[Rfam]
RNA sequence: AGGUCAUUUCAAAGAGAGUUUGCAGGCCUUGAAGCCAGGAACUCUAAAGGCUAUGGCAAGAGAUUGAAGUUCUCUACAGGAUGCCAGAGUCACCCAAUAGUGCUGUUUUCCUGAAAGGAUAUAAGA
Numbered sequence: 001a002g003g004u005c006a007u008u009u010c011a012a013a014g015a016g017a018g019u020u021u022g023c024a025g026g027c028c029u030u031g032a033a034g035c036c037a038g039g040a041a042c043u044c045u046a047a048a049g050g051c052u053a054u055g056g057c058a059a060g061a062g063a064u065u066g067a068a069g070u071u072c073u074c075u076a077c078a079g080g081a082u083g084c085c086a087g088a089g090u091c092a093c094c095c096a097a098u099a100g101u102g103c104u105g106u107u108u109u110c111c112u113g114a115a116a117g118g119a120u121a122u123a124a125g126a
Stems, first nucleotide, its partner, number of pairs: 003057005015045007023038001025036002071119003075115001078112004088104002091102003